[Rfam]
RNA sequence: CGGGGAAAGAAGACCCUGUUGAGCUUGACUCUAGUCCGACUUUGUGAAACGAGUUAGGAGGUGUAGCAUAGGUGGGAGCCCCGCGGCGGCAGUGAAAUACCACUACUCUUAAUCUUGUUUUACUUACUCCAUUGUGGAGGGCGUGGCGCAAGCCACCUUGUGGACGCAAGGCCGCUCGGCGGCCGACCUCCGUGGAGGACAUUGUCAGGUGGGGAGUUUGGCUGGGGCGGCACAUCUGUUAAACGAUAACGCAGGUGUCCUAAGAUGAGCUCAAUGAGAACAGAAAUCUCAUGUGGAACAAAAGGGUAAAAGCUCAUUUGAUUUUGAUUUUCAGUACGAAUCCAAACUGUGAAAGCAUGGCCUAUCGAUCCUUUAUGCCUUCGGAGUCUGAAGCUAGAGGUGUCAGAAAAGUUACCACAGGGAUAACUGGCUUGUGGCAGCCAAGCGUUCAUAGCGACGUUGCUUUUUGAUCCUUCGAUGUCGGCUCUUCCUAUCAUUGCGAAGCAGAAUUCGCCAAGUGUUGGAUUGUUCACCCACUAAUAGGGAACGUGAGCUGGGUUUAGACCGUCGUGAGACAGGUUAGUUUUACCCUA
Number, nucleotide and partner (000 for none) at each position: 001c000002g000003g592004g591005g590006a000007a587008a586009g000010a000011a000012g000013a000014c000015c421016c420017u419018g418019u000020u417021g416022a413023g412024c411025u410026u409027g000028a217029c216030u215031c214032u000033a000034g000035u209036c208037c000038g206039a205040c204041u000042u000043u000044g123045u122046g121047a120048a119049a118050c117051g116052a115053g114054u112055u111056a110057g109058g108059a107060g106061g000062u000063g000064u000065a000066g000067c000068a000069u000070a000071g104072g103073u102074g101075g100076g000077a000078g087079c086080c000081c000082c000083g000084c000085g000086g079087c078088g000089g000090c000091a000092g000093u000094g000095a000096a000097a000098u000099a000100c075101c074102a073103c072104u071105a000106c060107u059108c058109u057110u056111a055112a054113u000114c053115u052116u051117g050118u049119u048120u047121u046122a045123c044124u000125u000126a000127c197128u196129c195130c194131a193132u000133u000134g000135u000136g000137g190138a189139g188140g187141g000142c000143g000144u000145g154146g153147c000148g000149c000150a000151a000152g000153c146154c145155a000156c000157c000158u000159u000160g000161u000162g000163g000164a000165c000166g000167c000168a000169a000170g184171g183172c182173c181174g180175c000176u000177c000178g000179g000180c174181g173182g172183c171184c170185g000186a000187c140188c139189u138190c137191c000192g000193u131194g130195g129196a128197g127198g000199a000200c000201a000202u000203u000204g040205u039206c038207a000208g036209g035210u000211g000212g000213g000214g031215a030216g029217u028218u000219u000220g233221g231222c230223u229224g000225g000226g000227g000228c000229g223230g222231c221232a000233c220234a256235u255236c254237u253238g252239u251240u000241a000242a000243a000244c000245g000246a000247u000248a000249a000250c000251g239252c238253a237254g236255g235256u234257g000258u000259c360260c359261u000262a000263a000264g000265a317266u316267g315268a314269g313270c312271u297272c296273a000274a292275u291276g290277a289278g288279a287280a000281c000282a000283g000284a000285a000286a000287u279288c278289u277290c276291a275292u274293g000294u000295g000296g272297a271298a307299c306300a000301a000302a000303a000304g000305g000306g299307u298308a000309a000310a000311a000312g270313c269314u268315c267316a266317u265318u000319u000320g000321a000322u346323u345324u344325u000326g342327a341328u340329u339330u338331u000332c000333a000334g000335u000336a000337c000338g330339a329340a328341u327342c326343c000344a324345a323346a322347c000348u357349g356350u355351g000352a000353a000354a000355g350356c349357a348358u000359g260360g259361c000362c000363u000364a000365u000366c000367g000368a000369u000370c000371c399372u398373u397374u396375a395376u000377g000378c000379c393380u392381u391382c390383g000384g000385a000386g000387u000388c000389u000390g382391a381392a380393g379394c000395u375396a374397g373398a372399g371400g000401u000402g000403u000404c000405a000406g000407a000408a000409a026410a025411g024412u023413u022414a000415c000416c021417a020418c018419a017420g016421g015422g000423a000424u000425a000426a000427c000428u000429g000430g471431c000432u469433u000434g468435u000436g464437g463438c462439a461440g460441c459442c000443a000444a000445g455446c454447g000448u000449u000450c000451a000452u000453a000454g446455c445456g000457a000458c000459g441460u440461u439462g438463c437464u436465u000466u000467u000468u434469g432470a000471u430472c000473c000474u000475u000476c000477g000478a000479u000480g000481u000482c557483g555484g554485c553486u552487c549488u546489u545490c544491c543492u542493a000494u000495c520496a519497u000498u000499g514500c513501g512502a511503a510504g000505c000506a000507g000508a000509a000510u503511u502512c501513g500514c499515c000516a000517a000518g000519u496520g495521u000522u536523g535524g534525a000526u532527u000528g000529u000530u000531c000532a526533c000534c524535c523536a522537c000538u000539a000540a000541u000542a492543g491544g490545g489546a488547a000548c000549g487550u000551g000552a486553g485554c484555u483556g000557g482558g000559u000560u000561u000562a000563g581564a580565c579566c578567g576568u575569c574570g000571u000572g000573a000574g569575a568576c567577a000578g566579g565580u564581u563582a000583g000584u000585u000586u008587u007588a000589c000590c005591c004592u003593a000
Eukaryotic large subunit ribosomal RNA: a 593-nucleotide part of an RNA from Porphyridium purpureum.
Rfam links the family to the GO terms ribosome and structural constituent of ribosome.
The source organism's lineage runs through Eukaryota, Rhodophyta, Bangiophyceae, Porphyridiaceae and Porphyridium.